[Rfam]
RNA sequence: AAAAUCCAACCUAGGCAAAGUCUAGCCAACAGCCUAGAACAAACCAUUAUACUGCGUAAGGUAACAAGCGUAGUAAAGCUAAUGGAAUGGACAAUACAGGGUGCAACGAAAGUGAAGGUAUUGAGUCCCGAAAUACCUGACAUCAUAGAGGUCGACAUUUUUCAUAUGAUGGAAGACAGCAUGAAGGGUAACGACAAGGCAAGUUAUCACUACUCUAUCGGGAUCCGAGGCCG
Numbered sequence: 001a002a003a004a005u006c007c008a009a010c011c012u013a014g015g016c017a018a019a020g021u022c023u024a025g026c027c028a029a030c031a032g033c034c035u036a037g038a039a040c041a042a043a044c045c046a047u048u049a050u051a052c053u054g055c056g057u058a059a060g061g062u063a064a065c066a067a068g069c070g071u072a073g074u075a076a077a078g079c080u081a082a083u084g085g086a087a088u089g090g091a092c093a094a095u096a097c098a099g100g101g102u103g104c105a106a107c108g109a110a111a112g113u114g115a116a117g118g119u120a121u122u123g124a125g126u127c128c129c130g131a132a133a134u135a136c137c138u139g140a141c142a143u144c145a146u147a148g149a150g151g152u153c154g155a156c157a158u159u160u161u162u163c164a165u166a167u168g169a170u171g172g173a174a175g176a177c178a179g180c181a182u183g184a185a186g187g188g189u190a191a192c193g194a195c196a197a198g199g200c201a202a203g204u205u206a207u208c209a210c211u212a213c214u215c216u217a218u219c220g221g222g223a224u225c226c227g228a229g230g231c232c233g
Stems, first nucleotide, its partner, number of pairs: 012036005020030002023202001025200002040089002044085004050075008060065001122227001123225001125224006145218006151177003156171004182212002187208006

Background: The record is a 233-nucleotide sequence from Wolbachia endosymbiont of Pentalonia nigronervosa, which matches "Group II catalytic intron D1-D4-6" in Rfam. Rfam links the family to the GO term Group II intron splicing. Lineage of the source: Bacteria > Pseudomonadota > Rickettsiales > Wolbachieae > Wolbachia. The literature on the family includes a 2001 paper in Trends Genet by Bonen and Vogel, "The ins and outs of group II introns".